[Rfam]
RNA sequence: CUCUUAUUCAGAGUUGGUGGAGGGACAGACCCGAUGAAGCCCAGCAACCAUCACUACUGGUGAAAAGGUGCUAAUCUGAUGCAAGGAUAAUAGUUCCUUGAACAAUAAGAG
Number, nucleotide and partner (000 for none) at each position: 001c111002u110003c109004u108005u107006a106007u105008u104009c000010a000011g000012a000013g042014u000015u000016g041017g040018u039019g000020g000021a000022g032023g031024g030025a000026c081027a080028g000029a077030c024031c023032c022033g000034a000035u000036g000037a000038a000039g018040c017041c016042c013043a072044g071045c070046a069047a000048c068049c067050a000051u063052c062053a061054c000055u000056a000057c000058u000059g000060g000061u053062g052063a051064a000065a000066a000067g049068g048069u046070g045071c044072u043073a000074a000075u000076c000077u029078g000079a000080u027081g026082c100083a099084a098085g097086g096087a095088u000089a000090a000091u000092a000093g000094u000095u087096c086097c085098u084099u083100g082101a000102a000103c000104a008105a007106u006107a005108a004109g003110a002111g001
RNA: SAM riboswitch aptamer (S box leader)
Organism: Oceanobacillus iheyensis